The record is a 94-nucleotide RNA sequence from Streptomyces echinoruber, which matches "sodF sRNA" in Rfam. The source organism's lineage runs through Bacteria, Actinomycetes, Kitasatosporales, Streptomycetaceae and Streptomyces. The literature on the family includes a 2014 paper in Nucleic Acids Res by Kim et al., "Inverse regulation of Fe- and Ni-containing SOD genes by a Fur family regulator Nur through small RNA processed from 3'UTR of the sodF mRNA". It is annotated as a small RNA.
[Rfam]
RNA sequence: CCGUCCUGCCUCGUGAUCGUCUUCUCACCCGUCACGCGGGCAGGGCCGCAGGGAGCGGGGCGGUCCCGCGCGGACGGAUGCGCGGGACCGCCCC
Numbered sequence: 001c002c003g004u005c006c007u008g009c010c011u012c013g014u015g016a017u018c019g020u021c022u023u024c025u026c027a028c029c030c031g032u033c034a035c036g037c038g039g040g041c042a043g044g045g046c047c048g049c050a051g052g053g054a055g056c057g058g059g060g061c062g063g064u065c066c067c068g069c070g071c072g073g074a075c076g077g078a079u080g081c082g083c084g085g086g087a088c089c090g091c092c093c094c
Stems, first nucleotide, its partner, number of pairs: 002048002005044007013035004019029001057094016